The record is an 88-nucleotide RNA from Zea mays, which matches "mir-166 microRNA precursor family" in Rfam. Gene Ontology terms of the family: RISC complex and miRNA-mediated post-transcriptional gene silencing. The base pairs follow the family's consensus structure, which was predicted with PFOLD. Rfam's curators write: This family represents the plant microRNA (miRNA) precursor mir-166. Rfam's curators put it in the seed alignment. Taxonomically the source falls in Zea (Eukaryota, Tracheophyta, Magnoliopsida, Andropogonodae).
RNA sequence: GUUGAGGGGAAUGUCGUCUGGCGCGAGACCGUACCGGACGACGUGCUCUCGGUUGGACGGUCUCGGACCAGGCUUCAUUCCUCCCAAC
Numbered sequence: 001g002u003u004g005a006g007g008g009g010a011a012u013g014u015c016g017u018c019u020g021g022c023g024c025g026a027g028a029c030c031g032u033a034c035c036g037g038a039c040g041a042c043g044u045g046c047u048c049u050c051g052g053u054u055g056g057a058c059g060g061u062c063u064c065g066g067a068c069c070a071g072g073c074u075u076c077a078u079u080c081c082u083c084c085c086a087a088c
Base pairs, nucleotide, nucleotide: 001088002087003086004085006083007082008081009080010079011078012077013076016073017072018071019070020069021068024065025064026063